[Rfam]
The family of this 98-nucleotide RNA from Pseudomonas cavernae is "Pseudomon-Rho RNA". It scores 81 bits against the family's covariance model. By type it is a cis-regulatory element.

RNA sequence: UUCGCCUCGCAACGGUUUCUCCGUUGCCCUCCAGCCGCCGUCGACGCACUCCUAAUCCAAUAAGUACGCGAUCCAGUCGCCUUCUUUCGCGACGCGGC
Numbered sequence: 001u002u003c004g005c006c007u008c009g010c011a012a013c014g015g016u017u018u019c020u021c022c023g024u025u026g027c028c029c030u031c032c033a034g035c036c037g038c039c040g041u042c043g044a045c046g047c048a049c050u051c052c053u054a055a056u057c058c059a060a061u062a063a064g065u066a067c068g069c070g071a072u073c074c075a076g077u078c079g080c081c082u083u084c085u086u087u088c089g090c091g092a093c094g095c096g097g098c
Base pairs, nucleotide, nucleotide: 009027010026011025012024013023014022034098035097036096037095039094040093041092042091043090068080069079070078071077072076